[Rfam]
RNA: mir-29 microRNA precursor family
Organism: Saccoglossus kowalevskii
RNA sequence: AGGAACCUGAUUUCAAACGGUGGAUAGAUUCCAUAGCAACAGUCUAGCACCAUUUGAAAUCAGUGUUCC
Number, nucleotide and partner (000 for none) at each position: 001a000002g068003g067004a066005a064006c000007c063008u062009g061010a060011u059012u058013u057014c056015a055016a000017a053018c000019g051020g050021u049022g048023g000024a000025u046026a045027g044028a043029u000030u000031c000032c000033a000034u000035a000036g000037c000038a000039a000040c000041a000042g000043u028044c027045u026046a025047g000048c022049a021050c020051c019052a000053u017054u000055u015056g014057a013058a012059a011060u010061c009062a008063g007064u005065g000066u004067u003068c002069c000